[Rfam]
RNA sequence: AAGGAGAAUCCGAAAAUCCUUAAAAGAGUAGGAA
Numbered sequence: 001a002a003g004g005a006g007a008a009u010c011c012g013a014a015a016a017u018c019c020u021u022a023a024a025a026g027a028g029u030a031g032g033a034a
Stems, first nucleotide, its partner, number of pairs: 002020004010032002
Notes: This 34-nucleotide sequence belongs to the Rfam family "DUF805b RNA". Pairs were carried over by alignment from the consensus structure, which is taken from published work.